[Rfam]
RNA sequence: UGUAAUAGGGCUUUCAUGGGUGGUAGUUCACCCCUUUUCUUGAAAGGGGGUGAUAAUAUGACAGUAUUCGAAGUAUUGGUUCUGAUGAUCUCGUUUGCAACCUUAAUUGUAGCCAUACUGUCAGAACAAAAAAAGUAACCACCCGAUGAAUGCCUAGCGCGCAUUUUGGUUGGUUACUUUUUAAACCAAACAUGUGAGCUACCCCCUUGAAGGGCUUUUACACAUGAGACCGUUCCAUGUUACAGCAUGGUCG
Numbered sequence: 001u002g003u004a005a006u007a008g009g010g011c012u013u014u015c016a017u018g019g020g021u022g023g024u025a026g027u028u029c030a031c032c033c034c035u036u037u038u039c040u041u042g043a044a045a046g047g048g049g050g051u052g053a054u055a056a057u058a059u060g061a062c063a064g065u066a067u068u069c070g071a072a073g074u075a076u077u078g079g080u081u082c083u084g085a086u087g088a089u090c091u092c093g094u095u096u097g098c099a100a101c102c103u104u105a106a107u108u109g110u111a112g113c114c115a116u117a118c119u120g121u122c123a124g125a126a127c128a129a130a131a132a133a134a135g136u137a138a139c140c141a142c143c144c145g146a147u148g149a150a151u152g153c154c155u156a157g158c159g160c161g162c163a164u165u166u167u168g169g170u171u172g173g174u175u176a177c178u179u180u181u182u183a184a185a186c187c188a189a190a191c192a193u194g195u196g197a198g199c200u201a202c203c204c205c206c207u208u209g210a211a212g213g214g215c216u217u218u219u220a221c222a223c224a225u226g227a228g229a230c231c232g233u234u235c236c237a238u239g240u241u242a243c244a245g246c247a248u249g250g251u252c253g
Base pairs, nucleotide, nucleotide: 001222002221004219005218007216009200010199011198012197013196015148016147017146018144019143020142022139024137025136028053029052030051032049033048034047035046036045060122061121062120063119064118065117066116074087075086097113098112203214204213205212231253232252235250236249237248238247239246240245
RNA: BsrG